[Rfam]
The family of this 76-nucleotide RNA from Clupea harengus is "mir-460 microRNA precursor family". The match comes from Rfam's covariance-model search (78 bits). The source organism's lineage runs through Eukaryota, Metazoa, Actinopteri, Clupeinae and Clupea. Rfam links the family to the GO terms RISC complex and miRNA-mediated post-transcriptional gene silencing. The base pairs follow the family's consensus structure, which was predicted with RNAalifold. On this family, see Xu et al., FEBS Lett 2006: "Identification of microRNAs from different tissues of chicken embryo and adult chicken".

RNA sequence: CCCUACAGUUCCUGCAUUGUACACACUGUGUGUAGUAGUUGUGUCGCACAGCGCAUACAAUGUGGAUGCUGUAUUG
Numbered sequence: 001c002c003c004u005a006c007a008g009u010u011c012c013u014g015c016a017u018u019g020u021a022c023a024c025a026c027u028g029u030g031u032g033u034a035g036u037a038g039u040u041g042u043g044u045c046g047c048a049c050a051g052c053g054c055a056u057a058c059a060a061u062g063u064g065g066a067u068g069c070u071g072u073a074u075u076g
Base pairs, nucleotide, nucleotide: 012065013064015062016061017060018059019058020057021056024053026051027050028049029048030047031046